[Rfam]
RNA sequence: GUAAAAACAAAGGGGUGCCCUCCGGACGGGCUGAGAUCAUACCCUAAGCACCUGAUGCGGUUAGUACCGCCGAAGGGAUUGUUAUUCGUAUCCAU
Numbered sequence: 001g002u003a004a005a006a007a008c009a010a011a012g013g014g015g016u017g018c019c020c021u022c023c024g025g026a027c028g029g030g031c032u033g034a035g036a037u038c039a040u041a042c043c044c045u046a047a048g049c050a051c052c053u054g055a056u057g058c059g060g061u062u063a064g065u066a067c068c069g070c071c072g073a074a075g076g077g078a079u080u081g082u083u084a085u086u087c088g089u090a091u092c093c094a095u
Base pairs, nucleotide, nucleotide: 006083007082008081009080010079011045012044013043014042016039017031018030019029020028051076052075053074057070058069059068060067

This 95-nucleotide RNA from Phocaeicola coprocola belongs to the Rfam family "TPP riboswitch aptamer (THI element)". About the family: Vitamin B(1) in its active form thiamin pyrophosphate (TPP) is an essential coenzyme that is synthesised by coupling of pyrimidine and thiazole moieties in bacteria. The previously detected thiamin-regulatory element, thi box was extended, resulting in a new, highly conserved RNA secondary structure, the THI element, which is widely distributed in eubacteria and also occurs in some archaea. Analysis of operon structures identified a large number of new candidate thiamin-regulated genes, mostly transporters, in various prokaryotic organisms. Pairs were carried over by alignment from the consensus structure, which is taken from published work.